[Rfam]
RNA sequence: AACCACUGUGGAAGAUUCGCUACAUUGACGCAUCACACACGGAAGCCUCGUGCUUCCCUUAAGCGUUAGGGAAAGUCCCCGGACAAGUGGCAGAAAGUGUCACCAGUGAUUUGGCAUUGGUUUUCCCCAAAGAUGAACUUCUCUUGCAAAGACACAUUCGUGGAGCAGAUGGGUUGAUCAUCUUUAUUGAAAACCUGUUCGUCAUAGCACAGUUAUGCGAAUGGUUCUACGGCCUUUGGCUUGUGGAAUUAACUCAACGGGGCUCACUCUCCAUGUGGU
Numbered sequence: 001a002a003c004c005a006c007u008g009u010g011g012a013a014g015a016u017u018c019g020c021u022a023c024a025u026u027g028a029c030g031c032a033u034c035a036c037a038c039a040c041g042g043a044a045g046c047c048u049c050g051u052g053c054u055u056c057c058c059u060u061a062a063g064c065g066u067u068a069g070g071g072a073a074a075g076u077c078c079c080c081g082g083a084c085a086a087g088u089g090g091c092a093g094a095a096a097g098u099g100u101c102a103c104c105a106g107u108g109a110u111u112u113g114g115c116a117u118u119g120g121u122u123u124u125c126c127c128c129a130a131a132g133a134u135g136a137a138c139u140u141c142u143c144u145u146g147c148a149a150a151g152a153c154a155c156a157u158u159c160g161u162g163g164a165g166c167a168g169a170u171g172g173g174u175u176g177a178u179c180a181u182c183u184u185u186a187u188u189g190a191a192a193a194c195c196u197g198u199u200c201g202u203c204a205u206a207g208c209a210c211a212g213u214u215a216u217g218c219g220a221a222u223g224g225u226u227c228u229a230c231g232g233c234c235u236u237u238g239g240c241u242u243g244u245g246g247a248a249u250u251a252a253c254u255c256a257a258c259g260g261g262g263c264u265c266a267c268u269c270u271c272c273a274u275g276u277g278g279u
Stems, first nucleotide, its partner, number of pairs: 002279005008274005015222006025069007042056005074264002077262004089101004102121006123191003131183006141173003144168004154161002224249009
The family of this 279-nucleotide sequence from Umbelopsis vinacea is "RNase MRP". Rfam classes the family as a ribozyme. About the family: RNase MRP is an enzymatically active ribonucleoprotein with two distinct roles in eukaryotes. In mitochondria it plays a direct role in the initiation of mitochondrial DNA replication. In the nucleus it is involved in precursor rRNA processing, where it cleaves the internal transcribed spacer 1 between 18S and 5.8S rRNAs. Lineage of the source: Eukaryota > Mucoromycotina > Umbelopsidales > Umbelopsidaceae > Umbelopsis.